Shown here is a 139-nucleotide sequence from Desulfosporosinus sp. I2, a member of the family "c-di-AMP riboswitch aptamer (ydaO/yuaA leader)". This family represents a conserved RNA structure found upstream of the ydaO and yuaA genes in Bacillus subtilis and related genes in other bacteria. The ydaO/yuaA element is thought to act as a genetic 'off' switch for the ydaO and yuaA genes in its native state. It is believed that the element may be triggered during osmotic shock leading to activation of ydaO, a predicted amino acid transporter gene, and members of the yuaA-yubG operon which code for KtrA and KtrB K+ transporters. It scores 93 bits against the family's covariance model. Taxonomically the source falls in Desulfosporosinus (Bacteria, Bacillati, Bacillota, Clostridia).

RNA sequence: ACAAAAUGAAAGCUGAAUCCAGAUCUACCUGGAGCGGGGGACUUUUUUUAUGGGGUGAAACGCGUAGCCAUACGCGUCGGGCUUGCACCUUAAUGCCCGAAUCCGUCAACUAACCUCGCAAGCUAUGAAAGGUGAAAAA
Numbered sequence: 001a002c003a004a005a006a007u008g009a010a011a012g013c014u015g016a017a018u019c020c021a022g023a024u025c026u027a028c029c030u031g032g033a034g035c036g037g038g039g040g041a042c043u044u045u046u047u048u049u050a051u052g053g054g055g056u057g058a059a060a061c062g063c064g065u066a067g068c069c070a071u072a073c074g075c076g077u078c079g080g081g082c083u084u085g086c087a088c089c090u091u092a093a094u095g096c097c098c099g100a101a102u103c104c105g106u107c108a109a110c111u112a113a114c115c116u117c118g119c120a121a122g123c124u125a126u127g128a129a130a131g132g133u134g135a136a137a138a139a
Base pairs, nucleotide, nucleotide: 011124012123013122014121018033019032020031021030022029034119035118036117037116038115039114044052053104054103055102061076062075063074064073079098080097081096082095